[Rfam]
RNA: PyrR binding site
RNA sequence: UGUACCUUUAAAGAUCAGUCCAGAGAGGCUGGCAAGGUAGUCGAUGGAAGAAGACGGGGUGAGCCUAAUUAGCACCUCUCUAUAUCUUCAUGUUCAUGCAACUCCUUGCCGAAUAGGGCAAGGAGUUUUUUGAU
Numbered sequence: 001u002g003u004a005c006c007u008u009u010a011a012a013g014a015u016c017a018g019u020c021c022a023g024a025g026a027g028g029c030u031g032g033c034a035a036g037g038u039a040g041u042c043g044a045u046g047g048a049a050g051a052a053g054a055c056g057g058g059g060u061g062a063g064c065c066u067a068a069u070u071a072g073c074a075c076c077u078c079u080c081u082a083u084a085u086c087u088u089c090a091u092g093u094u095c096a097u098g099c100a101a102c103u104c105c106u107u108g109c110c111g112a113a114u115a116g117g118g119c120a121a122g123g124a125g126u127u128u129u130u131u132g133a134u
Stems, first nucleotide, its partner, number of pairs: 003039006015032006047095003051091001053089002056086001098129001100127011